[Rfam]
RNA: U11 spliceosomal RNA
Organism: Brachypodius melanocephalos
RNA sequence: AAAAAGGGCUUCUGUCGUGCGUGGCACGGGGGGGCUUCGCGCCACCCCUGCGGAAUCGACAUCAAGAGAUUUCGGAAGCACAAUUUUUGUGAGAGGGGAUCGCCGGUAACCGCUUGUUCCGGCACCCCG
Number, nucleotide and partner (000 for none) at each position: 001a000002a000003a000004a000005a000006g000007g000008g079009c078010u077011u076012c075013u026014g025015u024016c023017g022018u000019g000020c000021g000022u017023g016024g015025c014026a013027c050028g049029g048030g047031g046032g045033g043034g042035c041036u000037u000038c000039g000040c000041g035042c034043c033044a000045c032046c031047c030048c029049u028050g027051c074052g073053g072054a071055a070056u069057c068058g000059a000060c000061a000062u000063c000064a000065a000066g000067a000068g057069a056070u055071u054072u053073c052074g051075g012076a011077a010078g009079c008080a000081c000082a000083a000084u000085u000086u000087u000088u000089g000090u000091g000092a000093g000094a000095g000096g000097g127098g126099a000100u124101c000102g123103c122104c121105g120106g119107u000108a118109a117110c116111c000112g000113c000114u000115u000116g110117u109118u108119c106120c105121g104122g103123c102124a100125c000126c098127c097128c000129g000